Shown here is a 267-nucleotide sequence from Chrysemys picta, a member of the family "Small Cajal body specific RNA 6". The family has 17 seed sequences and 1,309 matches in Rfam 15.1. The family's consensus secondary structure is taken from published work. U88 is small Cajal body specific RNA (scaRNA). scaRNAs are a novel class of small nuclear RNAs which localise to the Cajal bodies. U88 is found associated with both fibrillarin and Gar1p and co-localises with coilin in Cajal bodies. Rfam classes the family as a small Cajal body RNA.
[Rfam]
RNA sequence: GGUCUGUGAUGAAUAGUAAAAGGUCUGACUGCUUGAAGGAUUACACUUCCAUUACCCUUUCAACUCCCAGCAAUUUCUCACCCAUCAUACCCCAGCAAUGCUGUGACUGGGGGAGUGUUUGCUGACAAAUGGUGAUGUGUUCAGUUCAUGUUCCCUAGAGCAUCACAGGCACAAUUCUGAUCUGCAUCCAACAGAACCAGUCAAAGGAGUAAGGGGUUUUGGAGUUGCAUGUCUGGGUACAUGAUCUCAAACUUUCUUGCUGAGACC
Numbered sequence: 001g002g003u004c005u006g007u008g009a010u011g012a013a014u015a016g017u018a019a020a021a022g023g024u025c026u027g028a029c030u031g032c033u034u035g036a037a038g039g040a041u042u043a044c045a046c047u048u049c050c051a052u053u054a055c056c057c058u059u060u061c062a063a064c065u066c067c068c069a070g071c072a073a074u075u076u077c078u079c080a081c082c083c084a085u086c087a088u089a090c091c092c093c094a095g096c097a098a099u100g101c102u103g104u105g106a107c108u109g110g111g112g113g114a115g116u117g118u119u120u121g122c123u124g125a126c127a128a129a130u131g132g133u134g135a136u137g138u139g140u141u142c143a144g145u146u147c148a149u150g151u152u153c154c155c156u157a158g159a160g161c162a163u164c165a166c167a168g169g170c171a172c173a174a175u176u177c178u179g180a181u182c183u184g185c186a187u188c189c190a191a192c193a194g195a196a197c198c199a200g201u202c203a204a205a206g207g208a209g210u211a212a213g214g215g216g217u218u219u220u221g222g223a224g225u226u227g228c229a230u231g232u233c234u235g236g237g238u239a240c241a242u243g244a245u246c247u248c249a250a251a252c253u254u255u256c257u258u259g260c261u262g263a264g265a266c267c
Stems, first nucleotide, its partner, number of pairs: 001267004038247005047224005064209004068124006081110002085106005090100001132189001134188006149173003153169002